RNA sequence: GGAAGUGUGUGUCUUCUGUUUGUGAUGGCACGUAGCUGGACAUUGAUCGCUAGACCGUUAUUAGUGUUUGCAGAUCUGCUCAGUGGACAUCCGUCACACUAUUGUUCUCUCAACAUAAAUUUGCCGGACAGAUGUUUGGUGCUGAAGUUCUAGUGCCGGUCUUCUGUUGCAUCGACGCCGGGUCGAAACGCACAGUCAUGCAUUGUCCGUCCGGGUGUUGUUUCUGGUAAGGGUGGUGGUGCGUCAGCGUCGCCAUUCCGAGCCAAGGCUCCUCGGCCGGUAUACAAUUGCUAUGAGACCAGCACCGAAUUUCCCAGUCUGUCGUUUUCAAAAUUUCUUAGUUAAGUAACUUGGGUAGCUUAGCUUCGGAUUUUCGUAAAUUUACAGUUCAGAACACUUCCAUACCAGUGGCAUUGCCGAGCAAUUUGCCCAUUAAUUUU
Dot-bracket structure: ((((((((.............(((((.........(((..((..((((((.(..(..........)..))).))))))..))).........)))))........................................................................................................................................................................................................................................................................................................))))))))........((((((((...)))))..)))..........
The family of this 440-nucleotide RNA sequence from Musca domestica is "Arthropod 7SK RNA".
The match comes from Rfam's covariance-model search (200 bits).